[Rfam]
RNA: Bacillus sRNA ncr1015
Organism: Paenibacillus sp. UNCCL117
RNA sequence: UUAUAACAUGCACCAUUUUUGUUCGGACAAUAAAAUGCAGGCGUGAACUGAUUAUAUCAUUGCGUCUGUUGGUAUUGCAAUAUCAAAGAACCUGAUAAUUUUUCAGGUUCUUUUUUUG
Numbered sequence: 001u002u003a004u005a006a007c008a009u010g011c012a013c014c015a016u017u018u019u020u021g022u023u024c025g026g027a028c029a030a031u032a033a034a035a036u037g038c039a040g041g042c043g044u045g046a047a048c049u050g051a052u053u054a055u056a057u058c059a060u061u062g063c064g065u066c067u068g069u070u071g072g073u074a075u076u077g078c079a080a081u082a083u084c085a086a087a088g089a090a091c092c093u094g095a096u097a098a099u100u101u102u103u104c105a106g107g108u109u110c111u112u113u114u115u116u117u118g
Stems, first nucleotide, its partner, number of pairs: 034073001036071001037069002039065001041063003085113011